[Rfam]
Nucleotides: 104
Stems, first nucleotide, its partner, number of pairs: 004099004010044002013041001049094001051092002
Number, partner (000 for none) and nucleotide at each position: 001000a002000u003000g004099g005098a006097g007096a008000c009000a010044u011043g012000g013041c014000g015000u016000a017000a018000a019000g020000c021000c022000g023000g024000a025000g026000a027000c028000a029000g030000a031000g032000a033000u034000g035000g036000a037000g038000a039000g040000a041013g042000a043011c044010a045000g046000a047000a048000a049094g050000a051092g052091a053000g054000a055000a056000a057000a058000a059000g060000a061000g062000a063000g064000a065000c066000u067000a068000a069000c070000u071000a072000g073000a074000c075000u076000g077000u078000c079000a080000a081000c082000u083000u084000g085000a086000a087000a088000a089000g090000u091052u092051u093000g094049c095000a096007u097006c098005u099004c100000a101000u102000u103000u104000u